Rfam assigns this 90-nucleotide RNA sequence to the family "RAGATH-28 RNA".
Pairs were carried over by alignment from the consensus structure, which is taken from published work.
It is one of the family's seed sequences.
By type it is a small RNA.
RNA sequence: GCAUACGGUUGAUUCGUCCCGAUGCCGGAAGCUGGCGGACAUAGAGCAAGGGAACUGAGCAGAAAAAGUACACUGGUUGGGUGGCGAAGC
Dot-bracket structure: ((((..((..........)).)))).............................((((.(((..........))).))))..........